[Rfam]
RNA sequence: GCUGAGCUUGGUAGCGUGAGCUUCUAACUCAAGUGAGGGCAUUAAAGUGGGAUGGACUUUGAAUGAGCUCAGAUUGGUUGGGUCAAGUGUCUGCAAUAUCUGGCUUGCCCGUUCCAAGUUCCGACUGGAAACAAGUGGAGGCUUGGCCCCCUUGGUUCCUAGAGGAGAGGGCACUUGCCGGUUCGAGUUAGAUAAAGGCAUCGCCCGUUUCAAAUGAAGCAAGUGUUUCAAGCGUGAAAGGCUUGCGCCCCUUGAUUCAUAGCUGGCUUCACAGAGCUGCGACUACCUCUUGGUCUGAACAGUGGAAGGAUCACAGGCCGGUGCAUCCUUUGCUCGAAUAAAGCUUGGCUCAUUCUAAUGGACUCCCACUUUU
Numbered sequence: 001g002c003u004g005a006g007c008u009u010g011g012u013a014g015c016g017u018g019a020g021c022u023u024c025u026a027a028c029u030c031a032a033g034u035g036a037g038g039g040c041a042u043u044a045a046a047g048u049g050g051g052a053u054g055g056a057c058u059u060u061g062a063a064u065g066a067g068c069u070c071a072g073a074u075u076g077g078u079u080g081g082g083u084c085a086a087g088u089g090u091c092u093g094c095a096a097u098a099u100c101u102g103g104c105u106u107g108c109c110c111g112u113u114c115c116a117a118g119u120u121c122c123g124a125c126u127g128g129a130a131a132c133a134a135g136u137g138g139a140g141g142c143u144u145g146g147c148c149c150c151c152u153u154g155g156u157u158c159c160u161a162g163a164g165g166a167g168a169g170g171g172c173a174c175u176u177g178c179c180g181g182u183u184c185g186a187g188u189u190a191g192a193u194a195a196a197g198g199c200a201u202c203g204c205c206c207g208u209u210u211c212a213a214a215u216g217a218a219g220c221a222a223g224u225g226u227u228u229c230a231a232g233c234g235u236g237a238a239a240g241g242c243u244u245g246c247g248c249c250c251c252u253u254g255a256u257u258c259a260u261a262g263c264u265g266g267c268u269u270c271a272c273a274g275a276g277c278u279g280c281g282a283c284u285a286c287c288u289c290u291u292g293g294u295c296u297g298a299a300c301a302g303u304g305g306a307a308g309g310a311u312c313a314c315a316g317g318c319c320g321g322u323g324c325a326u327c328c329u330u331u332g333c334u335c336g337a338a339u340a341a342a343g344c345u346u347g348g349c350u351c352a353u354u355c356u357a358a359u360g361g362a363c364u365c366c367c368a369c370u371u372u373u
Stems, first nucleotide, its partner, number of pairs: 001040003004023007028037003044372009054363001057360001059358003062354006069348003076345004080335004085330003089327001092325002096322001100321008109309002112307005118300004123295004128158003132154004137149002159164001165291006176282001178274001180272001